[Rfam]
RNA sequence: GGUAUGUUAUUUAACCCCACAAAUAAGCCCCGGAAACUUAUUCGUGAUAAUAAUAAAUACGUA
Numbered sequence: 001g002g003u004a005u006g007u008u009a010u011u012u013a014a015c016c017c018c019a020c021a022a023a024u025a026a027g028c029c030c031c032g033g034a035a036a037c038u039u040a041u042u043c044g045u046g047a048u049a050a051u052a053a054u055a056a057a058u059a060c061g062u063a
Stems, first nucleotide, its partner, number of pairs: 008059006018046003022042001024040004

Rfam assigns this 63-nucleotide sequence from Heyndrickxia sporothermodurans to the family "Ribosomal protein L13 leader". The literature on the family includes a 1994 paper in Prog Nucleic Acid Res Mol Biol by Zengel and Lindahl, "Diverse mechanisms for regulating ribosomal protein synthesis in Escherichia coli". From the family's description: This family is a putative r-protein leader autoregulatory structure found in B. subtilis and other low-GC Gram-positive bacteria. It is located in the 5' untranslated regions of mRNAs encoding the L13-S9 (rplM-rpsI) ribosomal protein operon. Lineage of the source: Bacteria > Bacillota > Caryophanales > Bacillaceae > Heyndrickxia. A search with the family's covariance model found it, with a score of 53 bits.